[Rfam]
RNA sequence: GCGAUGAGCUCAUUUGCGUAAGACGGACAAGCAUUCCCUAGAGGAACACGUUGUGGAGCGUGGCUUGGACGCCGCAAAUAUCGAUACACCCUGCCUUUUGGCGGGGUGU
Numbered sequence: 001g002c003g004a005u006g007a008g009c010u011c012a013u014u015u016g017c018g019u020a021a022g023a024c025g026g027a028c029a030a031g032c033a034u035u036c037c038c039u040a041g042a043g044g045a046a047c048a049c050g051u052u053g054u055g056g057a058g059c060g061u062g063g064c065u066u067g068g069a070c071g072c073c074g075c076a077a078a079u080a081u082c083g084a085u086a087c088a089c090c091c092u093g094c095c096u097u098u099u100g101g102c103g104g105g106g107u108g109u
Base pairs, nucleotide, nucleotide: 014077015076016075017074018073024071025070028067029066030065031064032063035044036043047062048061050059051058052057086109087108088107089106090105091104092103093102094101